About this RNA
Shown here is a 386-nucleotide part of an RNA from Sphingobacterium allocomposti, a member of the family "Bacterial large subunit ribosomal RNA". NCBI's taxonomy places the organism under Bacteria, Bacteroidota, Sphingobacteriales, Sphingobacteriaceae, Sphingobacterium.
[Rfam]
RNA sequence: GAUAAGGCGGGUGGGAAACCCGCCCACCGAAAGACCAAGGUUUCCUGAUCAACGCUAAUCGGAUCAGGGUCAGUCGGGGCCUAAGGCGCACCCGAAAGGGGCAAGCCGAUGGACAACUGGUUAAUAUUCCAGUACUUUUUAUAACUGCGAUGUGGUGACGGAGUAGUGACACUGCCGCGGACUGACGGAAUAGUCCGUUGAAGGGCGUAGGUAAAUAAUCUGCAGGCAAAUCCGCAGGUUAUGCUGAACCCCGAUAGUACAGCAAAGCUCCGGCGGCGCUGAUAGUGCAGGUAAUCAGACUUCCAAGAAAACCCGCUAAGCUUCAGGUUAUAAAAACCCGUACCGUAAACCGACACAGGUGGUCGAGGAGAGAAUCCUAAGGUGCU
Numbered sequence: 001g002a003u004a005a006g007g008c009g010g011g012u013g014g015g016a017a018a019c020c021c022g023c024c025c026a027c028c029g030a031a032a033g034a035c036c037a038a039g040g041u042u043u044c045c046u047g048a049u050c051a052a053c054g055c056u057a058a059u060c061g062g063a064u065c066a067g068g069g070u071c072a073g074u075c076g077g078g079g080c081c082u083a084a085g086g087c088g089c090a091c092c093c094g095a096a097a098g099g100g101g102c103a104a105g106c107c108g109a110u111g112g113a114c115a116a117c118u119g120g121u122u123a124a125u126a127u128u129c130c131a132g133u134a135c136u137u138u139u140u141a142u143a144a145c146u147g148c149g150a151u152g153u154g155g156u157g158a159c160g161g162a163g164u165a166g167u168g169a170c171a172c173u174g175c176c177g178c179g180g181a182c183u184g185a186c187g188g189a190a191u192a193g194u195c196c197g198u199u200g201a202a203g204g205g206c207g208u209a210g211g212u213a214a215a216u217a218a219u220c221u222g223c224a225g226g227c228a229a230a231u232c233c234g235c236a237g238g239u240u241a242u243g244c245u246g247a248a249c250c251c252c253g254a255u256a257g258u259a260c261a262g263c264a265a266a267g268c269u270c271c272g273g274c275g276g277c278g279c280u281g282a283u284a285g286u287g288c289a290g291g292u293a294a295u296c297a298g299a300c301u302u303c304c305a306a307g308a309a310a311a312c313c314c315g316c317u318a319a320g321c322u323u324c325a326g327g328u329u330a331u332a333a334a335a336a337c338c339c340g341u342a343c344c345g346u347a348a349a350c351c352g353a354c355a356c357a358g359g360u361g362g363u364c365g366a367g368g369a370g371a372g373a374a375u376c377c378u379a380a381g382g383u384g385c386u
Base pairs, nucleotide, nucleotide: 006024007023008022009021010020011019025384026383027382028381033364034363035362036361039344040343044068045067046066047065048064049063053061054060075340076339077338078337080112081111085107086106087105091100092099093098116133117132118131119130120129136336137335138334139333140332141331142330143329144328145327146326147321148320152316153315154314155313160303161302162301163300166296172290173289174288175287177198178197179196180195181194182193199264200263203252204251205250210245211244212243217240218239219238220237221236222235223234225233226232266283268281271278272277350359351358366378367377368376369375